This 192-nucleotide RNA from Salmonella enterica belongs to the Rfam family "Gammaproteobacterial sRNA STnc100". By type it is a small RNA.
Nucleotides: 192
Stems, first nucleotide, its partner, number of pairs: 014142003033137007044059004083087001089114004094109003116130005150192003159182005164176002
Number, partner (000 for none) and nucleotide at each position: 001000u002000u003000u004000u005000a006000u007000u008000a009000c010000u011000u012000g013000u014142g015141a016140g017000u018000u019000g020000u021000a022000g023000a024000u025000u026000u027000u028000u029000c030000u031000u032000a033137u034136g035135c036134g037133g038132u039131g040000a041000a042000u043000c044059c045058c046057c047056c048000u049000u050000u051000g052000c053000g054000g055000c056047g057046g058045g059044g060000c061000g062000u063000c064000c065000a066000g067000u068000c069000a070000a071000a072000u073000a074000g075000u076000u077000a078000a079000u080000g081000u082000u083087c084000c085000u086000c087083g088000c089114g090113a091112a092111c093000c094109a095108u096107a097000u098000u099000g100000a101000c102000u103000g104000u105000g106000g107096u108095a109094u110000g111092g112091u113090u114089c115000a116130c117129c118128g119127g120126g121000a122000g123000g124000c125000a126120c127119c128118c129117g130116g131039c132038a133037c134036c135035g136034c137033a138000a139000u140016u141015u142014u143000u144000u145000a146000u147000a148000a149000a150192a151191u152190g153000a154000a155000a156000u157000u158000c159182a160181c161180a162179c163178c164176c165175u166000a167000u168000g169000g170000u171000u172000c173000a174000g175165a176164g177000c178163g179162g180161u181160g182159u183000c184000u185000u186000u187000u188000u189000a190152c191151a192150u
NCBI's taxonomy places the organism under Bacteria, Enterobacterales, Enterobacteriaceae, Salmonella, Salmonella enterica subsp. enterica serovar Typhimurium.